[Rfam]
RNA: permuted transfer-messenger RNA
Organism: Prochlorococcus sp. AG-402-G22
RNA sequence: GGUGAUCCAAACCAGUGUUUCGGACAGCGGUUCGAUUCCGCUCAGCUCCAUUAAUUUAAAUUGCAUGGGGCUGCAAUGGUUUCGACGGAGCAAAAGGAGGAUGACUGAAGCCUGCUCGGUAUGAGCAAAACAUAAACGCUAACAAAAUCGUUAGUUUCUCCCGUCAAACAGCACCUGUUGCUGCUUGA
Numbered sequence: 001g002g003u004g005a006u007c008c009a010a011a012c013c014a015g016u017g018u019u020u021c022g023g024a025c026a027g028c029g030g031u032u033c034g035a036u037u038c039c040g041c042u043c044a045g046c047u048c049c050a051u052u053a054a055u056u057u058a059a060a061u062u063g064c065a066u067g068g069g070g071c072u073g074c075a076a077u078g079g080u081u082u083c084g085a086c087g088g089a090g091c092a093a094a095a096g097g098a099g100g101a102u103g104a105c106u107g108a109a110g111c112c113u114g115c116u117c118g119g120u121a122u123g124a125g126c127a128a129a130a131c132a133u134a135a136a137c138g139c140u141a142a143c144a145a146a147a148u149c150g151u152u153a154g155u156u157u158c159u160c161c162c163g164u165c166a167a168a169c170a171g172c173a174c175c176u177g178u179u180g181c182u183g184c185u186u187g188a
Stems, first nucleotide, its partner, number of pairs: 001106003005102001016092003020088003026042005043073007